[Rfam]
RNA sequence: CGCGGUCCUGAGUGCAGUGGAGUUUACCACUAAUUGACCACAAUCAGUUACAGAUUUCUUUGUUCUGUCUCCACUCCCACUGCUUCACUUGACUAGCUAAA
Numbered sequence: 001c002g003c004g005g006u007c008c009u010g011a012g013u014g015c016a017g018u019g020g021a022g023u024u025u026a027c028c029a030c031u032a033a034u035u036g037a038c039c040a041c042a043a044u045c046a047g048u049u050a051c052a053g054a055u056u057u058c059u060u061u062g063u064u065c066u067g068u069c070u071c072c073a074c075u076c077c078c079a080c081u082g083c084u085u086c087a088c089u090u091g092a093c094u095a096g097c098u099a100a101a
Stems, first nucleotide, its partner, number of pairs: 002097002004094004010090002014086001016081005022076001029063002032060002

Rfam assigns this 101-nucleotide RNA from Callithrix jacchus to the family "Y RNA". The family's RNA type in Rfam is non-coding RNA gene. For this family Rfam cites "Conserved features of Y RNAs: a comparison of experimentally derived secondary structures" (Teunissen et al., Nucleic Acids Res, 2000).